RNA: PhotoRC-II RNA
RNA sequence: UUACUGUUCGUAACACCCCUCAAACCAAGACCUCUAGGGUGUCUAAAAACGUCUUUAAUACCUCUGCCUAGGGCGCAGAGGAAUAGUAACUCCA
Numbered sequence: 001u002u003a004c005u006g007u008u009c010g011u012a013a014c015a016c017c018c019c020u021c022a023a024a025c026c027a028a029g030a031c032c033u034c035u036a037g038g039g040u041g042u043c044u045a046a047a048a049a050c051g052u053c054u055u056u057a058a059u060a061c062c063u064c065u066g067c068c069u070a071g072g073g074c075g076c077a078g079a080g081g082a083a084u085a086g087u088a089a090c091u092c093c094a
Stems, first nucleotide, its partner, number of pairs: 013042005019037002027055005061081007